Shown here is a 113-nucleotide sequence from Hydrogenophaga sp. A37, a member of the family "Glycine riboswitch aptamer". This family represents the bacterial glycine riboswitch.
RNA sequence: GUGUCCCCCACUGGAGAGAGGCCGCUGCCCACACGGGUCUGGCGGCCCACCGAAGGAGCAAACGUGGCAUCGCCCGCGUGAAUCUCUCAGGUAAAGCGGACAGUGGGGCAGCA
Numbered sequence: 001g002u003g004u005c006c007c008c009c010a011c012u013g014g015a016g017a018g019a020g021g022c023c024g025c026u027g028c029c030c031a032c033a034c035g036g037g038u039c040u041g042g043c044g045g046c047c048c049a050c051c052g053a054a055g056g057a058g059c060a061a062a063c064g065u066g067g068c069a070u071c072g073c074c075c076g077c078g079u080g081a082a083u084c085u086c087u088c089a090g091g092u093a094a095a096g097c098g099g100a101c102a103g104u105g106g107g108g109c110a111g112c113a
Base pairs, nucleotide, nucleotide: 006108007107008106009105010104011103012102013101020047021046022045023044024043025042026041027040049092050091051090052088053087056086057085058084062079063078064077065076066075067074
Dot-bracket structure: .....((((((((......((((((((............)))))))).(((((..(((...((((((......))))))....))))).)))........)))))))).....
NCBI's taxonomy places the organism under Bacteria, Pseudomonadati, Betaproteobacteria, Burkholderiales, Hydrogenophaga.